[Rfam]
RNA sequence: GUGUUCGGGUAAUCGCUGCAUCUCUUUGAGAUGUAGAGGAAAGUCCAUGCUCACACCGUCUGCGAUGUCGGUAGUGUUCGUGCCUGACGAAGUCAUAAGUCAGGGUAGCAAGUAAUUGCUAACGGCAGGGAACUUACCUACGUUACGUUUGUAAUAUGGUAAGACGACCUUGAAAGUGCCACAGUGACGAAGUCUGAUUAGAAAUGAUCAGAGUGGAACGAGGUAAACCCCACGAGUGAGAAACCCAAAAUUUGGUAGGGGCAUCCUUACGAAGGAACUGAACGGAGUAAGGGAUAGGUUCGACCUAUAGACAGAUGAUUGCCGCUUUCGUACGAGGUUGACAACCGUUUGAAGUACGGAGUAACAGAACAUGGCUUACGGAA
Numbered sequence: 001g002u003g004u005u006c007g008g009g010u011a012a013u014c015g016c017u018g019c020a021u022c023u024c025u026u027u028g029a030g031a032u033g034u035a036g037a038g039g040a041a042a043g044u045c046c047a048u049g050c051u052c053a054c055a056c057c058g059u060c061u062g063c064g065a066u067g068u069c070g071g072u073a074g075u076g077u078u079c080g081u082g083c084c085u086g087a088c089g090a091a092g093u094c095a096u097a098a099g100u101c102a103g104g105g106u107a108g109c110a111a112g113u114a115a116u117u118g119c120u121a122a123c124g125g126c127a128g129g130g131a132a133c134u135u136a137c138c139u140a141c142g143u144u145a146c147g148u149u150u151g152u153a154a155u156a157u158g159g160u161a162a163g164a165c166g167a168c169c170u171u172g173a174a175a176g177u178g179c180c181a182c183a184g185u186g187a188c189g190a191a192g193u194c195u196g197a198u199u200a201g202a203a204a205u206g207a208u209c210a211g212a213g214u215g216g217a218a219c220g221a222g223g224u225a226a227a228c229c230c231c232a233c234g235a236g237u238g239a240g241a242a243a244c245c246c247a248a249a250a251u252u253u254g255g256u257a258g259g260g261g262c263a264u265c266c267u268u269a270c271g272a273a274g275g276a277a278c279u280g281a282a283c284g285g286a287g288u289a290a291g292g293g294a295u296a297g298g299u300u301c302g303a304c305c306u307a308u309a310g311a312c313a314g315a316u317g318a319u320u321g322c323c324g325c326u327u328u329c330g331u332a333c334g335a336g337g338u339u340g341a342c343a344a345c346c347g348u349u350u351g352a353a354g355u356a357c358g359g360a361g362u363a364a365c366a367g368a369a370c371a372u373g374g375c376u377u378a379c380g381g382a383a
Stems, first nucleotide, its partner, number of pairs: 004383003007379001008323007016036006041377003045374005050240005055072004060067001078235005083104006105123001106121006124230002127170003135161004142155005176228002178224003193212008244260003264293007294308006326361008